The record is a 140-nucleotide RNA sequence from Myotis lucifugus, which matches "Small Cajal body specific RNA 3" in Rfam. Its family is annotated with Cajal body, RNA processing and nucleolus in the Gene Ontology. scaRNAs are a specific class of small nuclear RNAs which localise to the Cajal bodies and guide the modification of RNA polymerase II transcribed spliceosomal RNAs U1, U2, U4, U5 and U12. By type it is a small Cajal body RNA. The source organism's lineage runs through Eukaryota, Metazoa, Sarcopterygii, Vespertilionidae and Myotis. It is one of the family's seed sequences. Pairs were carried over by alignment from the consensus structure, which was predicted with RNAalifold.
[Rfam]
RNA sequence: UAUGGAACCUGCAGGAAUCAUCCAUGUGGACAAAUGAAAAAUGCCUUUUGUCUACAAAUUGCAGUGAUCCUACAUAAACAUGGAGGCUUCUGUCUGGCUUAGGACAGCUGGCUAAGUCUAAGGGUUCCCCUCCAUACAAC
Dot-bracket structure: ...(((..((((............(((((((....((........))..)))))))....))))...)))...........(((((...(..(..(((((((.........)))))))..)..)....))))).......